[Rfam]
About this RNA
The record is a 415-nucleotide RNA from Nocardioides sp. LS1, which matches "Bacterial RNase P class A" in Rfam. The organism belongs to Nocardioides, within Bacteria.
RNA sequence: UGGGCUGGCCGGGCGACCGCGGCCCCGACCCUCGGGUCGGGGGCGAGGAAGGUCCGGGCUCCACAGGGCAAGGUGGUGGGUAACACCCACCCGAGGUGACUCGCGGGAAAGUGCCACAGAGAACAGACCGCCGCCCGGCUCUCGUUUCGGCGAGGCCGGGAGGUAAGGGUGAAACGGUGGCGUAAGAGACCACCAGCGCCCCGGGUGACCGGGGCGGCUAGGCAAACCCCACCUGGAGCAAGAUCAAGAAGUCCGGUGCUCGCACCGGACGCGCGCACGACCGAGGGCGGCCCGCCCGAGUGUGCGGGUAGAUCGCUGGAGGCGGCCGGCAACGGUCGUCGUAGAUGGAUGGUCGCCCCCCGGUGACCCGUGAGGGUCCCGGGGACAGAACCCGGCCUACAGGCCAGCCCGUCCG
Numbered sequence: 001u002g003g004g005c006u007g008g009c010c011g012g013g014c015g016a017c018c019g020c021g022g023c024c025c026c027g028a029c030c031c032u033c034g035g036g037u038c039g040g041g042g043g044c045g046a047g048g049a050a051g052g053u054c055c056g057g058g059c060u061c062c063a064c065a066g067g068g069c070a071a072g073g074u075g076g077u078g079g080g081u082a083a084c085a086c087c088c089a090c091c092c093g094a095g096g097u098g099a100c101u102c103g104c105g106g107g108a109a110a111g112u113g114c115c116a117c118a119g120a121g122a123a124c125a126g127a128c129c130g131c132c133g134c135c136c137g138g139c140u141c142u143c144g145u146u147u148c149g150g151c152g153a154g155g156c157c158g159g160g161a162g163g164u165a166a167g168g169g170u171g172a173a174a175c176g177g178u179g180g181c182g183u184a185a186g187a188g189a190c191c192a193c194c195a196g197c198g199c200c201c202c203g204g205g206u207g208a209c210c211g212g213g214g215c216g217g218c219u220a221g222g223c224a225a226a227c228c229c230c231a232c233c234u235g236g237a238g239c240a241a242g243a244u245c246a247a248g249a250a251g252u253c254c255g256g257u258g259c260u261c262g263c264a265c266c267g268g269a270c271g272c273g274c275g276c277a278c279g280a281c282c283g284a285g286g287g288c289g290g291c292c293c294g295c296c297c298g299a300g301u302g303u304g305c306g307g308g309u310a311g312a313u314c315g316c317u318g319g320a321g322g323c324g325g326c327c328g329g330c331a332a333c334g335g336u337c338g339u340c341g342u343a344g345a346u347g348g349a350u351g352g353u354c355g356c357c358c359c360c361c362g363g364u365g366a367c368c369c370g371u372g373a374g375g376g377u378c379c380c381g382g383g384g385a386c387a388g389a390a391c392c393c394g395g396c397c398u399a400c401a402g403g404c405c406a407g408c409c410c411g412u413c414c415g
Stems, first nucleotide, its partner, number of pairs: 001411010011400001012357007020045002023042006050398003054395005059238004066293004071234005076090005091105001092103004106229002111227002113223003128168002130164003134160007176194005196218001197216008242314004273305006285297004321340008